A member of the RNA family "T-box leader" from Alkalicoccobacillus porphyridii, 229 nucleotides long. A reference for the family is Gerdeman et al. (2003), "Solution structure of the Bacillus subtilis T-box antiterminator RNA: seven nucleotide bulge characterized by stacking and flexibility", J Mol Biol. Pairs were carried over by alignment from the consensus structure, which is taken from published work. NCBI's taxonomy places the organism under Bacteria, Bacillati, Bacillota, Bacillaceae, Alkalicoccobacillus.
[Rfam]
RNA sequence: AGACAUGCAAAGAUCGGGAAGAGUACACCUAACCCCUUACAGAAAGAGACGUCCAUUGGCUGGAAGACGACUCAGGCAGGUUAUGUAGAAGGUCGCCCGUGAGCAGCCUUGCUGAACAUUCAGUAAGCAGGGACGGGUGCUGGCCGUUAACAGAUUGAGUGUGCAUGAUGUAGAGAAGAAUCUGCCUUUUGCAAACAAAGGUGGUACCGCGAAACCCUUCGUCCUUUGA
Number, nucleotide and partner (000 for none) at each position: 001a000002g000003a000004c000005a000006u000007g104008c103009a000010a000011a000012g000013a000014u000015c099016g098017g097018g096019a000020a000021g000022a000023g000024u000025a000026c000027a086028c085029c000030u083031a082032a000033c000034c000035c076036c075037u074038u000039a000040c000041a000042g000043a000044a000045a000046g000047a000048g071049a000050c069051g068052u067053c066054c000055a000056u000057u000058g000059g000060c000061u000062g000063g000064a000065a000066g053067a052068c051069g050070a000071c048072u000073c000074a037075g036076g035077c000078a000079g000080g000081u000082u031083a030084u000085g028086u027087a000088g000089a000090a000091g000092g000093u000094c000095g000096c018097c017098c016099g015100u000101g000102a000103g008104c007105a000106g000107c132108c131109u130110u129111g128112c127113u126114g000115a000116a000117c000118a000119u000120u000121c000122a000123g000124u000125a000126a113127g112128c111129a110130g109131g108132g107133a000134c146135g145136g144137g000138u000139g000140c000141u000142g000143g000144c136145c135146g134147u000148u000149a000150a000151c000152a000153g000154a000155u000156u000157g000158a000159g000160u000161g000162u193163g192164c191165a190166u000167g188168a187169u000170g000171u000172a000173g000174a000175g000176a000177a000178g000179a000180a000181u000182c000183u000184g000185c000186c000187u168188u167189u000190u165191g164192c163193a162194a000195a000196c000197a000198a226199a225200g224201g223202u000203g000204g000205u000206a000207c000208c000209g222210c221211g220212a219213a218214a000215c000216c000217c000218u213219u212220c211221g210222u209223c201224c200225u199226u198227u000228g000229a000